[Rfam]
RNA sequence: AACUAACUUUGUUCGUCCAGGAUGAGAACCGUUAAGGUCCGAGCCGAGCAGCUUUGCUGCGAGACAACGUUGGCGCGCGCUCGUCACGACAACGACCCGAAGGGCGAGCGAAGCGAGUAAUCCGCACGACAUACCA
Numbered sequence: 001a002a003c004u005a006a007c008u009u010u011g012u013u014c015g016u017c018c019a020g021g022a023u024g025a026g027a028a029c030c031g032u033u034a035a036g037g038u039c040c041g042a043g044c045c046g047a048g049c050a051g052c053u054u055u056g057c058u059g060c061g062a063g064a065c066a067a068c069g070u071u072g073g074c075g076c077g078c079g080c081u082c083g084u085c086a087c088g089a090c091a092a093c094g095a096c097c098c099g100a101a102g103g104g105c106g107a108g109c110g111a112a113g114c115g116a117g118u119a120a121u122c123c124g125c126a127c128g129a130c131a132u133a134c135c136a
Stems, first nucleotide, its partner, number of pairs: 015127002018124001020123002023120001033103001038101001040099002045061002068094005